RNA sequence: UUGAAUCGAGCUGGAGAGCGCCGUUGCAACAGACGGCCGCCGAAGGGGCAAGCCGUGGCGCGGGUGCGCAGCGGUCGAAUCUCUCAGGCAAAAGGACAGCGGGGCCCAU
Number, nucleotide and partner (000 for none) at each position: 001u000002u000003g000004a000005a000006u104007c103008g000009a000010g100011c099012u098013g097014g000015a000016g000017a000018g000019c000020g037021c036022c035023g034024u000025u000026g000027c000028a000029a000030c000031a000032g000033a000034c023035g022036g021037c020038c000039g089040c088041c087042g085043a084044a000045g000046g083047g082048g081049c000050a000051a000052g076053c000054c000055g000056u000057g000058g000059c000060g000061c000062g000063g000064g000065u000066g000067c000068g000069c000070a000071g000072c000073g000074g000075u000076c052077g000078a000079a000080u000081c048082u047083c046084u043085c042086a000087g041088g040089c039090a000091a000092a000093a000094g000095g000096a000097c013098a012099g011100c010101g000102g000103g007104g006105c000106c000107c000108a000109u000
The record is a 109-nucleotide RNA sequence from Rhizobacter terrae, which matches "Glycine riboswitch aptamer" in Rfam. For this family Rfam cites "A glycine-dependent riboswitch that uses cooperative binding to control gene expression" (Mandal et al., Science, 2004). This family represents the bacterial glycine riboswitch. Lineage of the source: Bacteria > Pseudomonadati > Pseudomonadota > Burkholderiales > Rhizobacter.